[Rfam]
Nucleotides: 054
Stems, first nucleotide, its partner, number of pairs: 013043001014041003020036006
Number, partner (000 for none) and nucleotide at each position: 001000u002000a003000g004000u005000u006000a007000g008000u009000u010000c011000a012000c013043u014041g015040u016039a017000c018000g019000u020036u021035g022034c023033u024032c025031u026000g027000g028000a029000u030000a031025a032024g033023a034022g035021c036020g037000u038000c039016u040015g041014c042000u043013a044000a045000a046000u047000g048000a049000c050000a051000u052000g053000u054000a
UnaL2 LINE 3' element: a 54-nucleotide sequence from Cottoperca gobio. The eel long interspersed element (LINE) UnaL2 and its partner short interspersed element (SINE) share a conserved 3' tail containing a stem-loop that is critical for their retrotransposition. Taxonomically the source falls in Cottoperca (Eukaryota, Vertebrata, Eupercaria, Notothenioidei).